The family of this 482-nucleotide RNA sequence from Aeoliella straminimaris is "Bacterial RNase P class A". Lineage of the source: Bacteria > Pseudomonadati > Planctomycetota > Pirellulales > Aeoliella. It scores 287 bits against the family's covariance model. Rfam classes the family as a ribozyme.
[Rfam]
RNA sequence: AGAGACGACCGGAUGGUCGCCGGCUCGGGUCCACUGGACCUGGGCGGGAGGAAAGUCCGGGCGCCACAGAGCGGGGUGGUGGAUAACGUCCACCGGUCGCAAGACUAGGGAAAGUGCCACAGAAAAGAUACCGCCUGGGGGGCUGUCGGCCGUCGGCUCUCGGCCGUCGCGCGAGAAUCGAGGGAUCUAAACACCCUCGUUCUGGCCGAUAGCUGACAGCCAAUAGCCGAUAGCCCUUCAGGUAAGGGUGAAAUGGUGCGGUAAGAGCGCACCGCGGGCGAGGUGACUCGCCUGGCAGGGUAAACCCCACCCGGCGCAAGGCCAAACAGAGGGCAGAGCCGGCUCGGCUCGUUACGACUCUCGGGUAGGCCGCUAGAGGUGUGAGGCAACUCACUCCGUAGAGGAAUGGCCAUCCGUGGCCACGGUUCUCCAAGCGGGAAUCGCAGCCACGACAGAACCCGGCUUACAGGUCGUCUCUGGCU
Numbered sequence: 001a002g003a004g005a006c007g008a009c010c011g012g013a014u015g016g017u018c019g020c021c022g023g024c025u026c027g028g029g030u031c032c033a034c035u036g037g038a039c040c041u042g043g044g045c046g047g048g049a050g051g052a053a054a055g056u057c058c059g060g061g062c063g064c065c066a067c068a069g070a071g072c073g074g075g076g077u078g079g080u081g082g083a084u085a086a087c088g089u090c091c092a093c094c095g096g097u098c099g100c101a102a103g104a105c106u107a108g109g110g111a112a113a114g115u116g117c118c119a120c121a122g123a124a125a126a127g128a129u130a131c132c133g134c135c136u137g138g139g140g141g142g143c144u145g146u147c148g149g150c151c152g153u154c155g156g157c158u159c160u161c162g163g164c165c166g167u168c169g170c171g172c173g174a175g176a177a178u179c180g181a182g183g184g185a186u187c188u189a190a191a192c193a194c195c196c197u198c199g200u201u202c203u204g205g206c207c208g209a210u211a212g213c214u215g216a217c218a219g220c221c222a223a224u225a226g227c228c229g230a231u232a233g234c235c236c237u238u239c240a241g242g243u244a245a246g247g248g249u250g251a252a253a254u255g256g257u258g259c260g261g262u263a264a265g266a267g268c269g270c271a272c273c274g275c276g277g278g279c280g281a282g283g284u285g286a287c288u289c290g291c292c293u294g295g296c297a298g299g300g301u302a303a304a305c306c307c308c309a310c311c312c313g314g315c316g317c318a319a320g321g322c323c324a325a326a327c328a329g330a331g332g333g334c335a336g337a338g339c340c341g342g343c344u345c346g347g348c349u350c351g352u353u354a355c356g357a358c359u360c361u362c363g364g365g366u367a368g369g370c371c372g373c374u375a376g377a378g379g380u381g382u383g384a385g386g387c388a389a390c391u392c393a394c395u396c397c398g399u400a401g402a403g404g405a406a407u408g409g410c411c412a413u414c415c416g417u418g419g420c421c422a423c424g425g426u427u428c429u430c431c432a433a434g435c436g437g438g439a440a441u442c443g444c445a446g447c448c449a450c451g452a453c454a455g456a457a458c459c460c461g462g463c464u465u466a467c468a469g470g471u472c473g474u475c476u477c478u479g480g481c482u
Base pairs, nucleotide, nucleotide: 001478002477003476004475005474006473007472008471009470010469011467012414013413014412015411016410017409018408020048021047023045024044025043026042027041028040029039030038053465054464055463057462058461059460060459061458062316063315064314065313069345070344071343072342074312075311076310077309078308079093080092081091082090083089094108095106096105097104098103109307110306114305115304116301117300118299131247132246133243134242135241136240137239138238139237140236141235142234143233144232145231146230147229148228149227150226255273256272257271258270259269260268274296275294276293277292278291279290280289281288282287320371321370322369323368329362330361331360332359333358336350337349338348339347340346378397379396381394382393383392384391385390